[Rfam]
RNA sequence: CGCGUAGUCCGAGGCUCCGGUGCUCACCGGGGCCUGGUGCAAGAGGGA
Numbered sequence: 001c002g003c004g005u006a007g008u009c010c011g012a013g014g015c016u017c018c019g020g021u022g023c024u025c026a027c028c029g030g031g032g033c034c035u036g037g038u039g040c041a042a043g044a045g046g047g048a
Base pairs, nucleotide, nucleotide: 013034014033015032016031017030018029019028020027

Shown here is a 48-nucleotide RNA from Streptomyces clavuligerus, a member of the family "raiA-hairpin RNA". The family's consensus secondary structure is taken from published work.